[Rfam]
RNA sequence: GGUGCCAUGGGAGGUAUCCCAAUCCAGCCUUAGGAAAAGAAACCUUCCACGGGAGUCUUGGAGAUUAUUGACCUUCAUAAUGACUUA
Numbered sequence: 001g002g003u004g005c006c007a008u009g010g011g012a013g014g015u016a017u018c019c020c021a022a023u024c025c026a027g028c029c030u031u032a033g034g035a036a037a038a039g040a041a042a043c044c045u046u047c048c049a050c051g052g053g054a055g056u057c058u059u060g061g062a063g064a065u066u067a068u069u070g071a072c073c074u075u076c077a078u079a080a081u082g083a084c085u086u087a
Stems, first nucleotide, its partner, number of pairs: 002086001004084001006082003009078001011076002014073001017070001021066004028061002037059004043053003
This 87-nucleotide RNA sequence from Equus asinus belongs to the Rfam family "mir-9014 microRNA precursor family". NCBI's taxonomy places the organism under Eukaryota, Deuterostomia, Craniata, Dipnotetrapodomorpha, Equus. The family has 2 seed sequences and 581 matches in Rfam 15.1. Rfam links the family to the GO terms RISC complex and miRNA-mediated post-transcriptional gene silencing. A search with the family's covariance model found it, with a score of 64 bits. Pairs were carried over by alignment from the consensus structure, which was predicted with RNAalifold.